[Rfam]
Record summary: Shown here is an 89-nucleotide sequence from Halomonas sp. 1513, a member of the family "SAH (S-adenosyl-L-homocysteine) riboswitch aptamer". Pairs were carried over by alignment from the consensus structure, which is taken from published work. Taxonomically the source falls in Halomonas (Bacteria, Pseudomonadati, Pseudomonadota, Oceanospirillales). It scores 59 bits against the family's covariance model.
RNA sequence: CUGCCCGAGGGGCGCUGCAGCAUUCGCGUGCAGGCCAGGCGAAUGCGAGGCUCGGGCAGGUUGGGCAUAGGCAACGGCGCCCAUUCCCC
Numbered sequence: 001c002u003g004c005c006c007g008a009g010g011g012g013c014g015c016u017g018c019a020g021c022a023u024u025c026g027c028g029u030g031c032a033g034g035c036c037a038g039g040c041g042a043a044u045g046c047g048a049g050g051c052u053c054g055g056g057c058a059g060g061u062u063g064g065g066c067a068u069a070g071g072c073a074a075c076g077g078c079g080c081c082c083a084u085u086c087c088c089c
Stems, first nucleotide, its partner, number of pairs: 002058007021045006